[Rfam]
RNA sequence: GUUGACAGACGAGUUUCGCCUUACGAGAAAGUUUCGCGAAACGUCGCGGAUUGUAUGUAUUUUCUAAAACUUGAACUUUUACCUUGUCUUAGAAAAUACGGUGAAAAAACUUUUUUCGGAAUUUGAUAAUUCCUCAAAAACUUUUUUUAGGA
Numbered sequence: 001g002u003u004g005a006c007a008g009a010c011g012a013g014u015u016u017c018g019c020c021u022u023a024c025g026a027g028a029a030a031g032u033u034u035c036g037c038g039a040a041a042c043g044u045c046g047c048g049g050a051u052u053g054u055a056u057g058u059a060u061u062u063u064c065u066a067a068a069a070c071u072u073g074a075a076c077u078u079u080u081a082c083c084u085u086g087u088c089u090u091a092g093a094a095a096a097u098a099c100g101g102u103g104a105a106a107a108a109a110c111u112u113u114u115u116u117c118g119g120a121a122u123u124u125g126a127u128a129a130u131u132c133c134u135c136a137a138a139a140a141c142u143u144u145u146u147u148u149a150g151g152a
Stems, first nucleotide, its partner, number of pairs: 011045002013042007057099011105146005111140005118133006
The record is a 152-nucleotide RNA from Treponema phagedenis, which matches "TD-1 RNA" in Rfam. The family is grouped with related families in Rfam's "TD (Treponema denticola) motifs". By type it is a cis-regulatory element.